Rfam assigns this 158-nucleotide RNA sequence from Glycine max to the family "MIR4371 microRNA precursor family".
The organism belongs to Glycine subgen. Soja, within Eukaryota.
Clan: MIR4387 microRNA precursor clan.
[Rfam]
RNA sequence: CCAUUAAGUGAUGAUGUGAUAAACGGAGUGUCACAUCAUCACGUCCAAUCACUAACACAUAAACACCACGUCAUUGAAAAUAAUGAUGUGACAAUAAAAUGUUCGUGACAAAACGUAAUAACAUGACAUUCUGUCUGUCAUGUCAUCACUUAAUGGAA
Numbered sequence: 001c002c003a004u005u006a007a008g009u010g011a012u013g014a015u016g017u018g019a020u021a022a023a024c025g026g027a028g029u030g031u032c033a034c035a036u037c038a039u040c041a042c043g044u045c046c047a048a049u050c051a052c053u054a055a056c057a058c059a060u061a062a063a064c065a066c067c068a069c070g071u072c073a074u075u076g077a078a079a080a081u082a083a084u085g086a087u088g089u090g091a092c093a094a095u096a097a098a099a100u101g102u103u104c105g106u107g108a109c110a111a112a113a114c115g116u117a118a119u120a121a122c123a124u125g126a127c128a129u130u131c132u133g134u135c136u137g138u139c140a141u142g143u144c145a146u147c148a149c150u151u152a153a154u155g156g157a158a
Stems, first nucleotide, its partner, number of pairs: 001156021023134011036121001038119002041116004049108004054103004070087005